[Rfam]
RNA sequence: UGAAGGAUGAUAGAUUAGACGGAGUAUCAUUGAUAUUAUUCAUAUGUGAUAUGAUCAUAAUCAGCUACUUCUGACUACA
Numbered sequence: 001u002g003a004a005g006g007a008u009g010a011u012a013g014a015u016u017a018g019a020c021g022g023a024g025u026a027u028c029a030u031u032g033a034u035a036u037u038a039u040u041c042a043u044a045u046g047u048g049a050u051a052u053g054a055u056c057a058u059a060a061u062c063a064g065c066u067a068c069u070u071c072u073g074a075c076u077a078c079a
Stems, first nucleotide, its partner, number of pairs: 001079002004076002

Source information
Shown here is a 79-nucleotide sequence from Cicer arietinum, a member of the family "Small nucleolar RNA R12". Lineage of the source: Eukaryota > Streptophyta > Tracheophyta > Papilionoideae > Cicer. It is annotated as a C/D-box small nucleolar RNA. It scores 40 bits against the family's covariance model. Its family is annotated with nucleolus and RNA processing in the Gene Ontology. The family's consensus secondary structure was predicted with PFOLD. snoR12 is a C/D box small nucleolar RNA, which acts as a methylation guide for 25S ribosomal RNA in plants. snoR12 has been alternatively named snoZ44 in Arabidopsis and snoZ131 in rice.